Shown here is a 76-nucleotide RNA from Cnephaeus nilssonii, a member of the family "mir-9229 microRNA precursor family". Gene Ontology terms of the family: miRNA-mediated post-transcriptional gene silencing and RISC complex. The family's consensus secondary structure was predicted with RNAalifold. The family has 7 seed sequences and 27,225 matches in Rfam 15.1.
RNA sequence: GAGUCACCCUUAUGGGGCAAGACUUGCUUCAGUAGGGCUUUGGCGCUCACUGAGUCUUCCCCCUGAGUGUUUUUCU
Numbered sequence: 001g002a003g004u005c006a007c008c009c010u011u012a013u014g015g016g017g018c019a020a021g022a023c024u025u026g027c028u029u030c031a032g033u034a035g036g037g038c039u040u041u042g043g044c045g046c047u048c049a050c051u052g053a054g055u056c057u058u059c060c061c062c063c064u065g066a067g068u069g070u071u072u073u074u075c076u
Stems, first nucleotide, its partner, number of pairs: 001075003006070002009067004014062004019057001021056003029053005035047002037044002